[Rfam]
RNA sequence: CUUACAGAGUUUCUUGGCAUUCUGUCCACCUCCACUUCUUGGCCCUAUCUACGUACUCGGAGGUGGAUAUACUGCCAAUAGAGCUGUGUUGG
Numbered sequence: 001c002u003u004a005c006a007g008a009g010u011u012u013c014u015u016g017g018c019a020u021u022c023u024g025u026c027c028a029c030c031u032c033c034a035c036u037u038c039u040u041g042g043c044c045c046u047a048u049c050u051a052c053g054u055a056c057u058c059g060g061a062g063g064u065g066g067a068u069a070u071a072c073u074g075c076c077a078a079u080a081g082a083g084c085u086g087u088g089u090u091g092g
Stems, first nucleotide, its partner, number of pairs: 011082001014078006023069011

The record is a 92-nucleotide sequence from Glycine max, which matches "MIR394 microRNA precursor family" in Rfam. Gene Ontology terms of the family: RISC complex and miRNA-mediated post-transcriptional gene silencing. A reference for the family is Jones-Rhoades and Bartel (2004), "Computational identification of plant microRNAs and their targets, including a stress-induced miRNA", Mol Cell. The family's consensus secondary structure was predicted with WAR. The organism belongs to Glycine subgen. Soja, within Eukaryota.